About this RNA: A member of the RNA family "Small nucleolar RNA SNORD34" from Aegithalos caudatus, 73 nucleotides long. The family's RNA type in Rfam is C/D-box small nucleolar RNA. It scores 55 bits against the family's covariance model. Its Rfam clan is "SNORD34 clan". The base pairs follow the family's consensus structure, which was predicted with PFOLD. snoRNA U34 is found in intron 5 of the ribosomal protein L13a gene in humans.
[Rfam]
RNA sequence: AGCGUCUGUGAUGUUGCUUUUACCUACAUUGUUUGACUCCUCGUGAGAAAAAAACCCAAAUCCUGAGACGCCU
Numbered sequence: 001a002g003c004g005u006c007u008g009u010g011a012u013g014u015u016g017c018u019u020u021u022a023c024c025u026a027c028a029u030u031g032u033u034u035g036a037c038u039c040c041u042c043g044u045g046a047g048a049a050a051a052a053a054a055c056c057c058a059a060a061u062c063c064u065g066a067g068a069c070g071c072c073u
Stems, first nucleotide, its partner, number of pairs: 001073002003070004